[Rfam]
RNA sequence: GUUCUUUCCAUCGUGUAUCCCUGAUUUAUGCAGCCUUAGAUGCUUCA
Numbered sequence: 001g002u003u004c005u006u007u008c009c010a011u012c013g014u015g016u017a018u019c020c021c022u023g024a025u026u027u028a029u030g031c032a033g034c035c036u037u038a039g040a041u042g043c044u045u046c047a
Stems, first nucleotide, its partner, number of pairs: 010025004032044003

The record is a 47-nucleotide RNA from Tetracentron sinense, which matches "Plastid-ycf3 group II-D1 intron" in Rfam.
A search with the family's covariance model found it, with a score of 56 bits.
Rfam links the family to the GO term Group II intron splicing.
From the family's description: Plastid rpl16 is a non-coding RNA (ncRNA) recognised in plastids.
Rfam 15.1 lists 1,488 matches to the family in 559 species.
For this family Rfam cites "Retrograde signaling in plants: A critical review focusing on the GUN pathway and beyond" (Richter et al., Plant Commun, 2023).